Streptomyces RNA 6106: an 84-nucleotide sequence from Streptomyces lincolnensis. It is annotated as a small RNA. Identified by deep sequencing of transcriptome at the end of exponential growth phase. Appears smaller on northern blot than sequencing transcript. This indicates processing step. The pairing is the family consensus, mapped onto this sequence.
Nucleotides: 084
Stems, first nucleotide, its partner, number of pairs: 001019007022041002025038001026036003044081013058067003
Number, partner (000 for none) and nucleotide at each position: 001019a002018c003017g004016c005015c006014g007013c008000c009000c010000c011000c012000g013007g014006c015005g016004g017003c018002g019001u020000c021000c022041g023040u024000g025038g026036c027035c028034u029000g030000a031000a032000a033000a034028g035027g036026g037000c038025c039000a040023g041022c042000u043000c044081g045080c046079g047078g048077g049076g050075g051074u052073g053072g054071u055070g056069c057000c058067g059066u060065g061000u062000c063000g064000g065060c066059g067058c068000a069056g070055c071054a072053c073052c074051a075050c076049c077048c078047c079046c080045g081044c082000u083000u084000c